[Rfam]
RNA sequence: ACAUUAUCGGAAGCAGUGUUUUCCAUAAUGG
Number, nucleotide and partner (000 for none) at each position: 001a000002c030003a029004u028005u027006a026007u025008c000009g024010g023011a022012a021013g020014c018015a000016g000017u000018g014019u000020u013021u012022u011023c010024c009025a007026u006027a005028a004029u003030g002031g000